[Rfam]
RNA sequence: CAUCCAAAGGAUGAUCUUGGGUUUAAAUAUCUCACGACGGUCGUCUGAGACACCUUGAGUGUCAUGCUGAUGUUAUAAUCCAAUAUUUCUGAUGGUU
Numbered sequence: 001c002a003u004c005c006a007a008a009g010g011a012u013g014a015u016c017u018u019g020g021g022u023u024u025a026a027a028u029a030u031c032u033c034a035c036g037a038c039g040g041u042c043g044u045c046u047g048a049g050a051c052a053c054c055u056u057g058a059g060u061g062u063c064a065u066g067c068u069g070a071u072g073u074u075a076u077a078a079u080c081c082a083a084u085a086u087u088u089c090u091g092a093u094g095g096u097u
Stems, first nucleotide, its partner, number of pairs: 002096003051061003
RNA: Small nucleolar RNA Z161/Z228
Organism: Sesamum indicum